[Rfam]
RNA sequence: GGAGCCGGACAAACCGUCGCUGCGGGCCACACGCCCGGAGAGGAAAGUCCGGGCUCCACAGGGCAGGACGCUGGGCAACGCCCAGGGGGGGUGACCCCGGGAAAGCGCCACAGAAAACAAACCGCCGCGCCAAAAGCGCGGUAAGGGUGAAACGGUGGGGCAAGAGCCCACCAGAGGCGGCGGCGACGCGGCCUGUUAGGCAUGCCCCGUCUGGAGCAAGACCAAAUAGGGAAGGCGGCUUGCCCGGCCAGAGCCUUCCGGGUAGGUUGCUUGAGGGCGCGGGCAACCGCGCUCCUAGAGGAAUGACGGUUACAUGCGCCUGCGGCGCAUGACAGAACCCGGCUUACAGUCCGACUCCCGCU
Numbered sequence: 001g002g003a004g005c006c007g008g009a010c011a012a013a014c015c016g017u018c019g020c021u022g023c024g025g026g027c028c029a030c031a032c033g034c035c036c037g038g039a040g041a042g043g044a045a046a047g048u049c050c051g052g053g054c055u056c057c058a059c060a061g062g063g064c065a066g067g068a069c070g071c072u073g074g075g076c077a078a079c080g081c082c083c084a085g086g087g088g089g090g091g092u093g094a095c096c097c098c099g100g101g102a103a104a105g106c107g108c109c110a111c112a113g114a115a116a117a118c119a120a121a122c123c124g125c126c127g128c129g130c131c132a133a134a135a136g137c138g139c140g141g142u143a144a145g146g147g148u149g150a151a152a153c154g155g156u157g158g159g160g161c162a163a164g165a166g167c168c169c170a171c172c173a174g175a176g177g178c179g180g181c182g183g184c185g186a187c188g189c190g191g192c193c194u195g196u197u198a199g200g201c202a203u204g205c206c207c208c209g210u211c212u213g214g215a216g217c218a219a220g221a222c223c224a225a226a227u228a229g230g231g232a233a234g235g236c237g238g239c240u241u242g243c244c245c246g247g248c249c250a251g252a253g254c255c256u257u258c259c260g261g262g263u264a265g266g267u268u269g270c271u272u273g274a275g276g277g278c279g280c281g282g283g284c285a286a287c288c289g290c291g292c293u294c295c296u297a298g299a300g301g302a303a304u305g306a307c308g309g310u311u312a313c314a315u316g317c318g319c320c321u322g323c324g325g326c327g328c329a330u331g332a333c334a335g336a337a338c339c340c341g342g343c344u345u346a347c348a349g350u351c352c353g354a355c356u357c358c359c360g361c362u
Stems, first nucleotide, its partner, number of pairs: 001358004006353005012311007020040002023037005045345003049342005054216004061245004066212005071085005087098004100207002105205002107201003122146002124142007154172006174196001175194004180189003220268004230259006237249004275294008

A member of the RNA family "Bacterial RNase P class A" from Candidatus Desulfovibrio trichonymphae, 362 nucleotides long. NCBI's taxonomy places the organism under Bacteria, Thermodesulfobacteriota, Desulfovibrionia, Desulfovibrionaceae, Desulfovibrio. Rfam classes the family as a ribozyme. The match comes from Rfam's covariance-model search (283 bits).